[Rfam]
RNA: cow-rumen-4 RNA
RNA sequence: AUGUUGAAAGGGGAAAGGAACCCAAUCAACAAAUAUAAUGCGAGUAAGGAAUCGCA
Numbered sequence: 001a002u003g004u005u006g007a008a009a010g011g012g013g014a015a016a017g018g019a020a021c022c023c024a025a026u027c028a029a030c031a032a033a034u035a036u037a038a039u040g041c042g043a044g045u046a047a048g049g050a051a052u053c054g055c056a
Base pairs, nucleotide, nucleotide: 002031003030004029005028006027007026010023011022012021039056040055041054042053043052